[Rfam]
RNA sequence: CUGUUUGCUGCUGCAUCAUCAUCAAGAUUCACAGAUCUCUCCUUUCUUUUGCUCUUUUUAGGAGAGGUAAUUAGUGGGGUUAAGAUUGGGGGAUUAAUGGCCCGUUUACAAGGCACUUUUUCACUCCCCUCUCAAGUAAAAGCCUCUUUGAUGAAUUGGGAAUCUUGAUGAUGCUGCAGCGGCAAUAUU
Numbered sequence: 001c002u003g004u005u006u007g008c009u010g011c012u013g014c015a016u017c018a019u020c021a022u023c024a025a026g027a028u029u030c031a032c033a034g035a036u037c038u039c040u041c042c043u044u045u046c047u048u049u050u051g052c053u054c055u056u057u058u059u060a061g062g063a064g065a066g067g068u069a070a071u072u073a074g075u076g077g078g079g080u081u082a083a084g085a086u087u088g089g090g091g092g093a094u095u096a097a098u099g100g101c102c103c104g105u106u107u108a109c110a111a112g113g114c115a116c117u118u119u120u121u122c123a124c125u126c127c128c129c130u131c132u133c134a135a136g137u138a139a140a141a142g143c144c145u146c147u148u149u150g151a152u153g154a155a156u157u158g159g160g161a162a163u164c165u166u167g168a169u170g171a172u173g174c175u176g177c178a179g180c181g182g183c184a185a186u187a188u189u
Stems, first nucleotide, its partner, number of pairs: 010180006017173014032158002
RNA: mir-172 microRNA precursor family
Organism: Eucalyptus grandis